[Rfam]
RNA sequence: AUUUGGUGGUGGCACAUCCCCUUGUGACGGGCGGUGUGCGCAUUGGUGCGUGUAAAUCACUGAAAAAGGCCCGUUUUUUAACGGGCCUUUUUUU
Numbered sequence: 001a002u003u004u005g006g007u008g009g010u011g012g013c014a015c016a017u018c019c020c021c022u023u024g025u026g027a028c029g030g031g032c033g034g035u036g037u038g039c040g041c042a043u044u045g046g047u048g049c050g051u052g053u054a055a056a057u058c059a060c061u062g063a064a065a066a067a068g069g070c071c072c073g074u075u076u077u078u079u080a081a082c083g084g085g086c087c088u089u090u091u092u093u094u
Base pairs, nucleotide, nucleotide: 009043010042011041014037015036016035017034018033020031021030022029068087069086070085071084072083073082074081075080

Rfam assigns this 94-nucleotide sequence from Alteromonas halophila to the family "Tryptophan operon leader". A reference for the family is Kolter and Yanofsky (1982), "Attenuation in amino acid biosynthetic operons", Annu Rev Genet. At least 6 amino acid operons are known to be regulated by attenuation. Pairs were carried over by alignment from the consensus structure, which is taken from published work. NCBI's taxonomy places the organism under Bacteria, Pseudomonadati, Gammaproteobacteria, Alteromonadaceae, Alteromonas.